[Rfam]
RNA sequence: CUGUGCUGAUGAGCAGCGAUUGUGUCCGACCUGGUAUUGCCGUUUCUCCGGGAACAGCUCUGACCAGGGCCUGAGGACAGUAAUCUUCUCUCUGAGCAG
Number, nucleotide and partner (000 for none) at each position: 001c000002u000003g097004u096005g000006c000007u000008g000009a000010u000011g000012a000013g000014c000015a000016g000017c000018g000019a000020u000021u000022g000023u000024g000025u000026c000027c000028g000029a000030c000031c000032u000033g000034g000035u000036a000037u000038u000039g058040c057041c000042g055043u000044u000045u000046c000047u000048c000049c000050g000051g000052g000053a000054a000055c042056a000057g040058c039059u000060c000061u000062g000063a000064c000065c000066a000067g000068g000069g000070c000071c000072u000073g000074a000075g000076g000077a000078c000079a000080g000081u000082a000083a000084u000085c000086u000087u000088c000089u000090c000091u000092c000093u000094g000095a000096g004097c003098a000099g000

A member of the RNA family "Z30 small nucleolar RNA" from Triplophysa tibetana, 99 nucleotides long. Lineage of the source: Eukaryota > Chordata > Gnathostomata > Teleostei > Triplophysa. Its family is annotated with RNA processing and nucleolus in the Gene Ontology. The literature on the family includes a 2002 paper in Mol Cell Biol by Galardi et al., "Purified box C/D snoRNPs are able to reproduce site-specific 2'-O-methylation of target RNA in vitro". Pairs were carried over by alignment from the consensus structure, which was predicted with PFOLD.